[Rfam]
RNA sequence: GGCCUCCCUCUGUGGGGCAAUCAAUCUGGGGCCCCGCGAUCAAUUGCCCCACAGAGGGAGGUC
Numbered sequence: 001g002g003c004c005u006c007c008c009u010c011u012g013u014g015g016g017g018c019a020a021u022c023a024a025u026c027u028g029g030g031g032c033c034c035c036g037c038g039a040u041c042a043a044u045u046g047c048c049c050c051a052c053a054g055a056g057g058g059a060g061g062u063c
Stems, first nucleotide, its partner, number of pairs: 001063021024040003027036003
RNA: mir-9242 microRNA precursor family
Organism: Cnephaeus nilssonii